[Rfam]
The family of this 216-nucleotide sequence from Staphylococcus aureus is "T-box leader". Its family is annotated with tRNA binding in the Gene Ontology. By type it is a cis-regulatory leader. Uncharged tRNA acts as the effector for transcription antitermination of genes in the T-box leader family. T-boxes are found upstream of many aminoacyl-tRNA synthetase genes and some amino acid biosynthetic genes usually in Gram-positive bacteria.

Nucleotides: 216
Stems, first nucleotide, its partner, number of pairs: 007102002015097004026086006039075003051071005116127003144179011186213004197209004
Number, partner (000 for none) and nucleotide at each position: 001000u002000a003000a004000g005000a006000c007102a008101u009000u010000g011000u012000u013000c014000g015097u016096a017095g018094g019000a020000c021000a022000a023000g024000u025000a026086a027085u028084a029083u030082a031081u032000a033000g034000u035000g036000u037000u038000c039075g040074a041073u042000a043000u044000c045000a046000g047000a048000g049000a050000g051071c052070u053069u054068g055067u056000g057000g058000u059000u060000a061000g062000u063000g064000u065000g066000a067055a068054c069053a070052a071051g072000a073041a074040u075039c076000a077000a078000c079000a080000u081031a082030u083029a084028u085027a086026u087000g088000a089000a090000u091000c092000u093000a094018c095017c096016u097015a098000c099000u100000u101008a102007u103000u104000u105000a106000a107000a108000a109000g110000a111000a112000c113000a114000a115000u116127c117126g118125g119000u120000g121000a122000u123000a124000a125118c126117c127116g128000u129000u130000a131000u132000u133000u134000u135000a136000g137000u138000g139000a140000a141000g142000u143000g144179c145178a146177a147176u148175u149174u150173a151172g152171g153170u154169u155000u156000a157000g158000u159000g160000u161000a162000u163000c164000u165000u166000u167000a168000u169154a170153a171152c172151u173150u174149a175148a176147a177146u178145u179144g180000u181000u182000a183000a184000a185000u186213a187212g188211g189210g190000u191000g192000g193000c194000a195000a196000c197209g198208c199207g200206u201000a202000g203000a204000c205000c206200a207199c208198g209197u210189c211188c212187c213186u214000u215000g216000u